Overview:
This 65-nucleotide RNA from Mus musculus belongs to the Rfam family "Selenocysteine insertion sequence 1".
[Rfam]
RNA sequence: CCGGCACUCAUGACGGUCUGCCUAAAAACCAGUCCGCUGGUGGGGCAGUCCUGAGGACCUGCGUG
Numbered sequence: 001c002c003g004g005c006a007c008u009c010a011u012g013a014c015g016g017u018c019u020g021c022c023u024a025a026a027a028a029c030c031a032g033u034c035c036g037c038u039g040g041u042g043g044g045g046c047a048g049u050c051c052u053g054a055g056g057a058c059c060u061g062c063g064u065g
Stems, first nucleotide, its partner, number of pairs: 001065001004062002015051002018048006030039003
It is annotated as a cis-regulatory element. Pairs were carried over by alignment from the consensus structure, which is taken from published work. From the family's description: The incorporation of selenocysteine into a protein sequence is directed by an in-frame UGA codon (usually a stop codon) within the coding region of the mRNA. Selenoprotein mRNAs contain a conserved secondary structure in the 3' UTR that is required for the distinction of UGA stop from UGA selenocysteine. The selenocysteine insertion sequence (SECIS) is around 60 nt in length and adopts a hairpin structure which is sufficiently well-defined and conserved to act as a computational screen for selenoprotein genes.